[Rfam]
RNA sequence: UUCCAAAUCAGUAACGAGGGCUUGUUAACCAAGUGGGGACAAUAAGUUGGUGGAACACUGACUCGGUCCACGGGUCAGAUCUGUUGUGGCAUUGUUCUGGGCUGCCCAGUCCAAGCUGUGAGUGAUCUGUGUGUGUUGAGCGAAGGCUUGGCUCAGGCGGUUCUUACAUUGGUGGGCAAUGCGUGAGGCUGGUUUCAUAGAGCAGCGAUCACCUCCCGCUCUCGGCAGUGGACGGAUCACAGCUCGACACCACUCAGAUUCACUAUGGCUUGCUCGCUCGUUCCCAGCUGGACCACCAAUUUU
Numbered sequence: 001u002u003c004c005a006a007a008u009c010a011g012u013a014a015c016g017a018g019g020g021c022u023u024g025u026u027a028a029c030c031a032a033g034u035g036g037g038g039a040c041a042a043u044a045a046g047u048u049g050g051u052g053g054a055a056c057a058c059u060g061a062c063u064c065g066g067u068c069c070a071c072g073g074g075u076c077a078g079a080u081c082u083g084u085u086g087u088g089g090c091a092u093u094g095u096u097c098u099g100g101g102c103u104g105c106c107c108a109g110u111c112c113a114a115g116c117u118g119u120g121a122g123u124g125a126u127c128u129g130u131g132u133g134u135g136u137u138g139a140g141c142g143a144a145g146g147c148u149u150g151g152c153u154c155a156g157g158c159g160g161u162u163c164u165u166a167c168a169u170u171g172g173u174g175g176g177c178a179a180u181g182c183g184u185g186a187g188g189c190u191g192g193u194u195u196c197a198u199a200g201a202g203c204a205g206c207g208a209u210c211a212c213c214u215c216c217c218g219c220u221c222u223c224g225g226c227a228g229u230g231g232a233c234g235g236a237u238c239a240c241a242g243c244u245c246g247a248c249a250c251c252a253c254u255c256a257g258a259u260u261c262a263c264u265a266u267g268g269c270u271u272g273c274u275c276g277c278u279c280g281u282u283c284c285c286a287g288c289u290g291g292a293c294c295a296c297c298a299a300u301u302u303u
Stems, first nucleotide, its partner, number of pairs: 002039002005022001008019002029036002044302010056290002058287003064280003071272006078260006086253004098246007106235002109233005115226004120221004124163002127160004132155002135152007171216002174213002182207003189200003
RNA: Plant signal recognition particle RNA